The family of this 93-nucleotide RNA sequence from Anisodus acutangulus is "Small nucleolar RNA Z122". By type it is a C/D-box small nucleolar RNA. The match comes from Rfam's covariance-model search (45 bits). The organism belongs to Anisodus, within Eukaryota. On this family, see Chen et al., Nucleic Acids Res 2003: "The high diversity of snoRNAs in plants: identification and comparative study of 120 snoRNA genes from Oryza sativa". The family's consensus secondary structure was predicted with PFOLD.

RNA sequence: UUUGGGAAAUGGUGACAAGUUUUUGAAUACACACUGAGGAAGUGGCAGGUUUUGCUGAUGAAUUUGCUUUAUGCACGUCAGUCUGAUCCCUAC
Numbered sequence: 001u002u003u004g005g006g007a008a009a010u011g012g013u014g015a016c017a018a019g020u021u022u023u024u025g026a027a028u029a030c031a032c033a034c035u036g037a038g039g040a041a042g043u044g045g046c047a048g049g050u051u052u053u054g055c056u057g058a059u060g061a062a063u064u065u066g067c068u069u070u071a072u073g074c075a076c077g078u079c080a081g082u083c084u085g086a087u088c089c090c091u092a093c
Base pairs, nucleotide, nucleotide: 002092004090005089006088007087